This 133-nucleotide RNA from Dendrosporobacter quercicolus belongs to the Rfam family "c-di-AMP riboswitch aptamer (ydaO/yuaA leader)".
Lineage of the source: Bacteria > Bacillati > Negativicutes > Sporomusaceae > Dendrosporobacter.
RNA sequence: AUAUAAAAUACGCCGAGUUUCAGGAAAGAAAGCGGGGAAACCAGUAUCUGGGGUGAAAUCAUGGCAACAUGGCGGGGAUUAUCCUUUGUCCCUAACCCGUCAGCUAACCUCGCAGGCACAAAGCGGUAUAUAU
Numbered sequence: 001a002u003a004u005a006a007a008a009u010a011c012g013c014c015g016a017g018u019u020u021c022a023g024g025a026a027a028g029a030a031a032g033c034g035g036g037g038a039a040a041c042c043a044g045u046a047u048c049u050g051g052g053g054u055g056a057a058a059u060c061a062u063g064g065c066a067a068c069a070u071g072g073c074g075g076g077g078a079u080u081a082u083c084c085u086u087u088g089u090c091c092c093u094a095a096c097c098c099g100u101c102a103g104c105u106a107a108c109c110u111c112g113c114a115g116g117c118a119c120a121a122a123g124c125g126g127u128a129u130a131u132a133u
Base pairs, nucleotide, nucleotide: 012117013116014115018031019030020029032113033112034111035110036109037108042050043049051098052097053096059072060071061070062069075092076091077090078089